The family of this 94-nucleotide RNA from Blautia wexlerae is "c-di-GMP-I riboswitch aptamer". The organism belongs to Blautia, within Bacteria. The match comes from Rfam's covariance-model search (60 bits).
RNA sequence: GGCAUUUAUUGGCAAACCGGUUGAAAAGCCGGGGCGCAAAGCCAGAAGGAGCUAAAGUCAGAUUGAAAUCUGGCCAUGCCAGCCGGUUGCAUCA
Numbered sequence: 001g002g003c004a005u006u007u008a009u010u011g012g013c014a015a016a017c018c019g020g021u022u023g024a025a026a027a028g029c030c031g032g033g034g035c036g037c038a039a040a041g042c043c044a045g046a047a048g049g050a051g052c053u054a055a056a057g058u059c060a061g062a063u064u065g066a067a068a069u070c071u072g073g074c075c076a077u078g079c080c081a082g083c084c085g086g087u088u089g090c091a092u093c094a
Base pairs, nucleotide, nucleotide: 012037013036017032018031019030020029021028022027040088041087042086043085048084049083051079052078057074058073059072060071061070062069063068